[Rfam]
RNA sequence: AUGCCAUUAAUUAAUAGAAGUUAUUUUUAGCGAUUCGGAGUGAUGCCCAAAUCCUCACUGCUAAUAUGAGAUGAAUUUUUGAGUGGGUAAAGGUUGCCCCUAAGGUGACCCACCUACUUUGCAGGAUGCCUGGGAGUUGUGAUCUGCCCA
Numbered sequence: 001a002u003g004c005c006a007u008u009a010a011u012u013a014a015u016a017g018a019a020g021u022u023a024u025u026u027u028u029a030g031c032g033a034u035u036c037g038g039a040g041u042g043a044u045g046c047c048c049a050a051a052u053c054c055u056c057a058c059u060g061c062u063a064a065u066a067u068g069a070g071a072u073g074a075a076u077u078u079u080u081g082a083g084u085g086g087g088u089a090a091a092g093g094u095u096g097c098c099c100c101u102a103a104g105g106u107g108a109c110c111c112a113c114c115u116a117c118u119u120u121g122c123a124g125g126a127u128g129c130c131u132g133g134g135a136g137u138u139g140u141g142a143u144c145u146g147c148c149c150a
Stems, first nucleotide, its partner, number of pairs: 004020001007019002032053004037048002054070004084150005091145007100134002103131005109125002113121001
RNA: U12 minor spliceosomal RNA